[Rfam]
RNA sequence: GAGUGCAUCUGUCUGACGAGUCUAACCUGCUUCUCGCAGGGAAGGCACAGGGAAACCGAUACGGCCGCAGUCUUACGACCAGGGCCACCGUGUUCAAGCGCGGGGAGUCAGCCGGAUGCGACCCGAAACCAGAUGAUCUACGCCUGGGCAAGGUGAAGCGUGCCGAAAGGCACGUGGAGGCCUGUUAGCGUUGGUGUCCUUCAAUACCCUCGCGUGACCUAGGUGUAGGGGUGAAAGGCCCAUCGAAUCUGGCAACAGCUGGUU
Numbered sequence: 001g002a003g004u005g006c007a008u009c010u011g012u013c014u015g016a017c018g019a020g021u022c023u024a025a026c027c028u029g030c031u032u033c034u035c036g037c038a039g040g041g042a043a044g045g046c047a048c049a050g051g052g053a054a055a056c057c058g059a060u061a062c063g064g065c066c067g068c069a070g071u072c073u074u075a076c077g078a079c080c081a082g083g084g085c086c087a088c089c090g091u092g093u094u095c096a097a098g099c100g101c102g103g104g105g106a107g108u109c110a111g112c113c114g115g116a117u118g119c120g121a122c123c124c125g126a127a128a129c130c131a132g133a134u135g136a137u138c139u140a141c142g143c144c145u146g147g148g149c150a151a152g153g154u155g156a157a158g159c160g161u162g163c164c165g166a167a168a169g170g171c172a173c174g175u176g177g178a179g180g181c182c183u184g185u186u187a188g189c190g191u192u193g194g195u196g197u198c199c200u201u202c203a204a205u206a207c208c209c210u211c212g213c214g215u216g217a218c219c220u221a222g223g224u225g226u227a228g229g230g231g232u233g234a235a236a237g238g239c240c241c242a243u244c245g246a247a248u249c250u251g252g253c254a255a256c257a258g259c260u261g262g263u264u
Stems, first nucleotide, its partner, number of pairs: 005119007013111005020046004026040004050057002063086004070079003089102004122262002125259001129252006138228011149216001151183004158175007188213003193209002196207002230240003

Shown here is a 264-nucleotide part of an RNA from Halorubellus sp. JP-L1, a member of the family "Archaeal large subunit ribosomal RNA".
Pairs were carried over by alignment from the consensus structure, which is taken from published work.
A search with the family's covariance model found it, with a score of 2805 bits.